[Rfam]
RNA: Plasmid-encoded Shigella sRNA A
RNA sequence: UGGUUACGGAAAGAGUUUUAAUUUUUAAAGAGACCGGGCACGUUAGCGGUCUCAGGCGACAGGCACAAAACGGAGAGAAACUAUGUUUGAA
Numbered sequence: 001u002g003g004u005u006a007c008g009g010a011a012a013g014a015g016u017u018u019u020a021a022u023u024u025u026u027a028a029a030g031a032g033a034c035c036g037g038g039c040a041c042g043u044u045a046g047c048g049g050u051c052u053c054a055g056g057c058g059a060c061a062g063g064c065a066c067a068a069a070a071c072g073g074a075g076a077g078a079a080a081c082u083a084u085g086u087u088u089g090a091a
Stems, first nucleotide, its partner, number of pairs: 001065002004062002007058002013053003017049002019045004071089004076084001